Rfam assigns this 67-nucleotide RNA from Psychrobacillus glaciei to the family "Bacillaceae-1 RNA".
It scores 61 bits against the family's covariance model.
The organism belongs to Psychrobacillus, within Bacteria.
Rfam classes the family as a small RNA.
RNA sequence: CGAAGAGGAACGAAGGCUAAGAGCGCCACAUCGUGUAGCCACGCCUUCGUGACUAACAUUCUGUUGG
Numbered sequence: 001c002g003a004a005g006a007g008g009a010a011c012g013a014a015g016g017c018u019a020a021g022a023g024c025g026c027c028a029c030a031u032c033g034u035g036u037a038g039c040c041a042c043g044c045c046u047u048c049g050u051g052a053c054u055a056a057c058a059u060u061c062u063g064u065u066g067g
Stems, first nucleotide, its partner, number of pairs: 011049007025039002028036002053067005